The record is a 120-nucleotide RNA sequence from Camponotus floridanus, which matches "U5 spliceosomal RNA" in Rfam.
RNA sequence: UCACUCGUGUUUGCGUCUGAUGCCCGAAUAAAUCUUUCGCCUUUUACUAAAGAUUUCCGUGGAGGCGAACAACUCAACGAGUCUUUAAGAAUUUUUGACGUACCUGGCGAAAGCUGGGUC
Numbered sequence: 001u002c003a004c005u006c007g008u009g010u011u012u013g014c015g016u017c018u019g020a021u022g023c024c025c026g027a028a029u030a031a032a033u034c035u036u037u038c039g040c041c042u043u044u045u046a047c048u049a050a051a052g053a054u055u056u057c058c059g060u061g062g063a064g065g066c067g068a069a070c071a072a073c074u075c076a077a078c079g080a081g082u083c084u085u086u087a088a089g090a091a092u093u094u095u096u097g098a099c100g101u102a103c104c105u106g107g108c109g110a111a112a113g114c115u116g117g118g119u120c
Base pairs, nucleotide, nucleotide: 003082004081005080006079009070010069011068012067013066014065016063017062018061019060030056031055032054033053034052035051036050037049102119103118104117105116106115107114